[Rfam]
RNA sequence: GCGUGGCGGGUGGGAGGCCCGCGCGGAUCUAACCCUAAUGGCGGCUGCUGCCGCUCCCUGCGCCCGCCCGCUGUUUUGGUCGCUGGCUUUCAGCGGGCGAGGGGAGCAGACAGGGAAGGGAAGGGGACGGGGAGGGAGGGAUGGAGGGUGGGAAGGGGGGCGGGAGGCUGUGAGGGGGGCGGGGCGGGUGGUCUGCGAUCGCCCCCGGCCGGAAGAAAAAUAAAGAAGAGGAAGACAACAAAAUAAAGAAAAAAAAGGAAAUAAAGAAAUAAAAACAAAAUAAAACACUAAUAAUAAAAAAACGUCAGCGGGGGCUCGACUCAACGCCCGUCAGUUCUGGGGAUCCCGGCUGCCGGGGGCCCCCCGCCCGGCCCCCCCGCUGUCCCCCCUCCCUCCGGCCGCGGUCGGCCGGCCUCGCCAUGGCCCCUGCCGCCGCGAAGAGCUCGCCUCUGUCAGCCCGGGCGGCGGCACGGGGGGGGCCGCAGGGCCGGGGGGUCCCCAGCCCCCAGCCGCCGGGAUGACCCCAGCAGAACAAAAAGGGAACGGUGGCGGCUUUCCUGCAACCCCUCCGCCGUGGGGUGCACAGCCGGCCACGCUCCAACACCA
Numbered sequence: 001g002c003g004u005g006g007c008g009g010g011u012g013g014g015a016g017g018c019c020c021g022c023g024c025g026g027a028u029c030u031a032a033c034c035c036u037a038a039u040g041g042c043g044g045c046u047g048c049u050g051c052c053g054c055u056c057c058c059u060g061c062g063c064c065c066g067c068c069c070g071c072u073g074u075u076u077u078g079g080u081c082g083c084u085g086g087c088u089u090u091c092a093g094c095g096g097g098c099g100a101g102g103g104g105a106g107c108a109g110a111c112a113g114g115g116a117a118g119g120g121a122a123g124g125g126g127a128c129g130g131g132g133a134g135g136g137a138g139g140g141a142u143g144g145a146g147g148g149u150g151g152g153a154a155g156g157g158g159g160g161c162g163g164g165a166g167g168c169u170g171u172g173a174g175g176g177g178g179g180c181g182g183g184g185c186g187g188g189u190g191g192u193c194u195g196c197g198a199u200c201g202c203c204c205c206c207g208g209c210c211g212g213a214a215g216a217a218a219a220a221u222a223a224a225g226a227a228g229a230g231g232a233a234g235a236c237a238a239c240a241a242a243a244u245a246a247a248g249a250a251a252a253a254a255a256a257g258g259a260a261a262u263a264a265a266g267a268a269a270u271a272a273a274a275a276c277a278a279a280a281u282a283a284a285a286c287a288c289u290a291a292u293a294a295u296a297a298a299a300a301a302a303c304g305u306c307a308g309c310g311g312g313g314g315c316u317c318g319a320c321u322c323a324a325c326g327c328c329c330g331u332c333a334g335u336u337c338u339g340g341g342g343a344u345c346c347c348g349g350c351u352g353c354c355g356g357g358g359g360c361c362c363c364c365c366g367c368c369c370g371g372c373c374c375c376c377c378c379g380c381u382g383u384c385c386c387c388c389c390u391c392c393c394u395c396c397g398g399c400c401g402c403g404g405u406c407g408g409c410c411g412g413c414c415u416c417g418c419c420a421u422g423g424c425c426c427c428u429g430c431c432g433c434c435g436c437g438a439a440g441a442g443c444u445c446g447c448c449u450c451u452g453u454c455a456g457c458c459c460g461g462g463c464g465g466c467g468g469c470a471c472g473g474g475g476g477g478g479g480c481c482g483c484a485g486g487g488c489c490g491g492g493g494g495g496u497c498c499c500c501a502g503c504c505c506c507c508a509g510c511c512g513c514c515g516g517g518a519u520g521a522c523c524c525c526a527g528c529a530g531a532a533c534a535a536a537a538a539g540g541g542a543a544c545g546g547u548g549g550c551g552g553c554u555u556u557c558c559u560g561c562a563a564c565c566c567c568u569c570c571g572c573c574g575u576g577g578g579g580u581g582c583a584c585a586g587c588c589g590g591c592c593a594c595g596c597u598c599c600a601a602c603a604c605c606a
Base pairs, nucleotide, nucleotide: 001329003327004326005325008322009321010320016316017315018314019313020312053107054106055105056104057103065099066098067097068096069095070094071093072092073091082309083308084307085306086305087304088302089301090300337527338526339525340524341523342522361494362493363492364491365490366488367487368486369485373477374476375475376474377473378472379471384464386462387461388460400437401436402435403434404433406432407431408430409429411425412424413423439451440450441449442448541598542597544595546594547593548592549591550590552588558586559585560584564579565578566577567576
This 606-nucleotide sequence from Asarcornis scutulata belongs to the Rfam family "Vertebrate telomerase RNA". Rfam 15.1 lists 523 matches to the family in 477 species. It scores 126 bits against the family's covariance model. Taxonomically the source falls in Asarcornis (Eukaryota, Chordata, Dinosauria, Theropoda). About the family: Telomerase is a ribonucleoprotein reverse transcriptase that synthesises telomeric DNA. Telomerase RNAs differ greatly in sequence and structure between vertebrates, ciliates and yeasts, but they share a 5' pseudoknot structure close to the template sequence. Vertebrate telomerase RNAs have a 3' H/ACA snoRNA-like domain. Clan: Telomerase clan. The family's RNA type in Rfam is non-coding RNA gene.